Shown here is a 90-nucleotide RNA sequence from Musca domestica, a member of the family "mir-314 microRNA precursor family". The organism belongs to Musca, within Eukaryota.

[Rfam]
RNA sequence: UCGUAACUUGCGUGGCUUCGAAUGUACCGAUUUGGGGAGAAAUUCUUGUGUGAAUUUUGGGUCCUCUGGUAUUCGAGCCAACAAGUUCGU
Numbered sequence: 001u002c003g004u005a006a007c008u009u010g011c012g013u014g015g016c017u018u019c020g021a022a023u024g025u026a027c028c029g030a031u032u033u034g035g036g037g038a039g040a041a042a043u044u045c046u047u048g049u050g051u052g053a054a055u056u057u058u059g060g061g062u063c064c065u066c067u068g069g070u071a072u073u074c075g076a077g078c079c080a081a082c083a084a085g086u087u088c089g090u
Base pairs, nucleotide, nucleotide: 002089003088005087006086007085008084009083010082013080014079015078016077017076019075020074021073024072025071026070027069028068030065037058038057039056040055043054044053045052